[Rfam]
RNA sequence: AGACUCUGUCUCAACAAAAACAAAAAAAAAGAUAUGGUCAUUAUUAAAUCUUUCGCCUUUUACUAAAGAUUUCCGUGGAGAGGAACAAUUGUGAGUUCACCACCAAAUUUUUUGACGUCCUGCUUAGAGGGGGC
Numbered sequence: 001a002g003a004c005u006c007u008g009u010c011u012c013a014a015c016a017a018a019a020a021c022a023a024a025a026a027a028a029a030a031g032a033u034a035u036g037g038u039c040a041u042u043a044u045u046a047a048a049u050c051u052u053u054c055g056c057c058u059u060u061u062a063c064u065a066a067a068g069a070u071u072u073c074c075g076u077g078g079a080g081a082g083g084a085a086c087a088a089u090u091g092u093g094a095g096u097u098c099a100c101c102a103c104c105a106a107a108u109u110u111u112u113u114g115a116c117g118u119c120c121u122g123c124u125u126a127g128a129g130g131g132g133g134c
Base pairs, nucleotide, nucleotide: 003096004095005094006093009083010082011081012080015077016076046072047071048070049069050068051067052066053065114134116133118131119130120129121128
U5 spliceosomal RNA: a 134-nucleotide RNA. It is annotated as a spliceosomal small nuclear RNA. A reference for the family is Zwieb (1997), "The uRNA database", Nucleic Acids Res.